The record is a 61-nucleotide RNA from Phtheirospermum japonicum, which matches "Plastid-psbN 5UTR RNA" in Rfam. The source organism's lineage runs through Eukaryota, Streptophyta, Embryophyta, Mesangiospermae and Phtheirospermum. On this family, see Richter et al., Plant Commun 2023: "Retrograde signaling in plants: A critical review focusing on the GUN pathway and beyond". Rfam describes the family as follows. Plastid psbN is a non-coding RNA (ncRNA) recognised in plastids. It was reported as a conserved 11 stem-loop in the prime untranslated region (5UTR) of psbN genes. By type it is a cis-regulatory element.
RNA sequence: UGAAACACCCAUCAAAAGAGCCGUUCCCCACCCAAGAGUUACUUUAACAUAUUUUGAAUUC
Numbered sequence: 001u002g003a004a005a006c007a008c009c010c011a012u013c014a015a016a017a018g019a020g021c022c023g024u025u026c027c028c029c030a031c032c033c034a035a036g037a038g039u040u041a042c043u044u045u046a047a048c049a050u051a052u053u054u055u056g057a058a059u060u061c
Stems, first nucleotide, its partner, number of pairs: 017045004023039004